Background
Rfam assigns this 146-nucleotide RNA sequence from Triticum aestivum to the family "Small nucleolar RNA snoR2/U65". The base pairs follow the family's consensus structure, which was predicted with WAR. Its Rfam clan is "SNORA65 clan". Rfam links the family to the GO terms nucleolus and RNA processing. Lineage of the source: Eukaryota > Tracheophyta > Poales > Triticodae > Triticum.
RNA sequence: GGCCCGAUGCCACGUCUCCGGUAGCUGCAGCCUUGACCGGAGAUGCUACAUUGUGCCGAGAGAGAGUUCUUGGACGUUUCACAUUUGAUAGGAACCUGUGGCUGCAAAUCAGUUGGUACACAGAGCCGUUUUUUGUGAUUACAUUU
Number, nucleotide and partner (000 for none) at each position: 001g000002g056003c055004c000005c053006g052007a051008u050009g049010c000011c000012a000013c045014g044015u043016c042017u041018c040019c000020g038021g037022u036023a000024g031025c030026u000027g000028c000029a000030g025031c024032c000033u000034u000035g000036a022037c021038c020039g000040g018041a017042g016043a015044u014045g013046c000047u000048a000049c009050a008051u007052u006053g005054u000055g003056c002057c000058g000059a000060g000061a000062g000063a000064g000065a000066g000067u000068u000069c000070u000071u000072g000073g000074a000075c000076g000077u000078u000079u138080c137081a136082c135083a134084u000085u000086u000087g000088a000089u000090a000091g127092g126093a000094a000095c000096c123097u122098g121099u000100g119101g117102c116103u115104g000105c000106a000107a000108a000109u000110c000111a000112g000113u000114u000115g103116g102117u101118a000119c100120a000121c098122a097123g096124a000125g000126c092127c091128g000129u000130u000131u000132u000133u000134u083135g082136u081137g080138a079139u000140u000141a000142c000143a000144u000145u000146u000